[Rfam]
RNA: Small nucleolar RNA Z103
RNA sequence: UUUGAAGUGAUGAUCCUUUCCCCAAAUUAUCGACUAUGAUUGUACUGUGCGAUUUUUGCAAGCUCUUCUCUUCGGAGAAGGCUUCUAAGCCAGUAGUUCUGAUCAAA
Numbered sequence: 001u002u003u004g005a006a007g008u009g010a011u012g013a014u015c016c017u018u019u020c021c022c023c024a025a026a027u028u029a030u031c032g033a034c035u036a037u038g039a040u041u042g043u044a045c046u047g048u049g050c051g052a053u054u055u056u057u058g059c060a061a062g063c064u065c066u067u068c069u070c071u072u073c074g075g076a077g078a079a080g081g082c083u084u085c086u087a088a089g090c091c092a093g094u095a096g097u098u099c100u101g102a103u104c105a106a107a
Stems, first nucleotide, its partner, number of pairs: 001107005